[Rfam]
RNA sequence: CUCUGGAGAGCCUCAUCAUUGAGCACCGAAGGAGCAAGCUAUUUGAUAAAUAGUGAAACUCUCAGGUAGAAGGACAGAG
Numbered sequence: 001c002u003c004u005g006g007a008g009a010g011c012c013u014c015a016u017c018a019u020u021g022a023g024c025a026c027c028g029a030a031g032g033a034g035c036a037a038g039c040u041a042u043u044u045g046a047u048a049a050a051u052a053g054u055g056a057a058a059c060u061c062u063c064a065g066g067u068a069g070a071a072g073g074a075c076a077g078a079g
Stems, first nucleotide, its partner, number of pairs: 001079005012023004025067003028063002032061003038054007

This 79-nucleotide sequence from Garciella nitratireducens belongs to the Rfam family "Glycine riboswitch aptamer". A search with the family's covariance model found it, with a score of 56 bits.